[Rfam]
RNA sequence: GUUAGUCGCCCAUGGCGGGCGUUUCCUCCCUUUCACUUGAGCCCCGUUCGCCCGGCGAACGGGGCUUCUUCCAUGCCGGA
Numbered sequence: 001g002u003u004a005g006u007c008g009c010c011c012a013u014g015g016c017g018g019g020c021g022u023u024u025c026c027u028c029c030c031u032u033u034c035a036c037u038u039g040a041g042c043c044c045c046g047u048u049c050g051c052c053c054g055g056c057g058a059a060c061g062g063g064g065c066u067u068c069u070u071c072c073a074u075g076c077c078g079g080a
Stems, first nucleotide, its partner, number of pairs: 008020004041065009
Overview:
This 80-nucleotide RNA from Methylobacterium sp. Leaf399 belongs to the Rfam family "Makes More Granules Regulator RNA (mmgR)". The pairing is the family consensus, mapped onto this sequence. The family's RNA type in Rfam is small RNA. A reference for the family is Ceizel Borella et al. (2016), "Expression of the Sinorhizobium meliloti small RNA gene mmgR is controlled by the nitrogen source", FEMS Microbiol Lett.